About this RNA: The family of this 91-nucleotide sequence from Asparagus officinalis is "small nucleolar RNA snoR114". A search with the family's covariance model found it, with a score of 47 bits.
[Rfam]
RNA sequence: UAGCAAUGAGGAAUUAGUGCUCUGUGAUCUGUGUUGGGUUCAUCACAGCCAUCUGACUUAGAAUGAUGAAAUCAAAGCACUCUCUGAGCUA
Numbered sequence: 001u002a003g004c005a006a007u008g009a010g011g012a013a014u015u016a017g018u019g020c021u022c023u024g025u026g027a028u029c030u031g032u033g034u035u036g037g038g039u040u041c042a043u044c045a046c047a048g049c050c051a052u053c054u055g056a057c058u059u060a061g062a063a064u065g066a067u068g069a070a071a072u073c074a075a076a077g078c079a080c081u082c083u084c085u086g087a088g089c090u091a
Stems, first nucleotide, its partner, number of pairs: 001091004